[Rfam]
RNA sequence: AAGGUGACACCGUGCUUCUUUGCAUAGCCAUAAAGUGAAAUGAAAACUAUGGAAUGUAAAGAAGUAUGUAGUCCCUGA
Numbered sequence: 001a002a003g004g005u006g007a008c009a010c011c012g013u014g015c016u017u018c019u020u021u022g023c024a025u026a027g028c029c030a031u032a033a034a035g036u037g038a039a040a041u042g043a044a045a046a047c048u049a050u051g052g053a054a055u056g057u058a059a060a061g062a063a064g065u066a067u068g069u070a071g072u073c074c075c076u077g078a
Stems, first nucleotide, its partner, number of pairs: 007072002011068015028052005

The record is a 78-nucleotide sequence from Thelazia callipaeda, which matches "mir-1 microRNA precursor family" in Rfam. Rfam's curators write: This family represents the microRNA (miRNA) mir-1 family. miRNAs are transcribed as ~70nt precursors (modelled here) and subsequently processed by the Dicer enzyme to give a ~22nt product. The source organism's lineage runs through Eukaryota, Bilateria, Protostomia, Thelazioidea and Thelazia. The base pairs follow the family's consensus structure, which was predicted with RNAalifold.